[Rfam]
RNA sequence: CUGUCGAAUACCGCAUCACUUGAUCACUGAUGGCUCAACGGUAUCCGACGGCACAAAUGAAUAAUGUAGCUGCCUUUUUGAGCGGGUCGGCUGCAAUCCGAAACGGAGAUUAUUCUCCUAGGACUGCGGUGCUUUUGUUAUGCCUUGGAGGCAGCUUCUGC
Numbered sequence: 001c002u003g004u005c006g007a008a009u010a011c012c013g014c015a016u017c018a019c020u021u022g023a024u025c026a027c028u029g030a031u032g033g034c035u036c037a038a039c040g041g042u043a044u045c046c047g048a049c050g051g052c053a054c055a056a057a058u059g060a061a062u063a064a065u066g067u068a069g070c071u072g073c074c075u076u077u078u079u080g081a082g083c084g085g086g087u088c089g090g091c092u093g094c095a096a097u098c099c100g101a102a103a104c105g106g107a108g109a110u111u112a113u114u115c116u117c118c119u120a121g122g123a124c125u126g127c128g129g130u131g132c133u134u135u136u137g138u139u140a141u142g143c144c145u146u147g148g149a150g151g152c153a154g155c156u157u158c159u160g161c
Stems, first nucleotide, its partner, number of pairs: 001051005008044006014032005033083006068156006090130005105118005
DUF2800 RNA: a 161-nucleotide sequence. By type it is a cis-regulatory element. Rfam's curators put it in the seed alignment. The family's consensus secondary structure is taken from published work.